[Rfam]
A member of the RNA family "mraW RNA" from Epidermidibacterium keratini, 100 nucleotides long. By type it is a cis-regulatory element. Taxonomically the source falls in Epidermidibacterium (Bacteria, Bacillati, Actinomycetota, Sporichthyaceae).
RNA sequence: GCACCGUGAGGUGCGGCCUCCGCCCGUCGAUCGCCCUGGCGCCCCUUCCCCGGUGCCAGGUCGACGCCGGGAGGGGACCGGACACCACGGCGCACCAGGA
Numbered sequence: 001g002c003a004c005c006g007u008g009a010g011g012u013g014c015g016g017c018c019u020c021c022g023c024c025c026g027u028c029g030a031u032c033g034c035c036c037u038g039g040c041g042c043c044c045c046u047u048c049c050c051c052g053g054u055g056c057c058a059g060g061u062c063g064a065c066g067c068c069g070g071g072a073g074g075g076g077a078c079c080g081g082a083c084a085c086c087a088c089g090g091c092g093c094a095c096c097a098g099g100a
Base pairs, nucleotide, nucleotide: 007087008086011083012082015079016078018076019075020074021073023071024070025069026068028066029065031064032063033062035060036059037058038057039056040055041054042053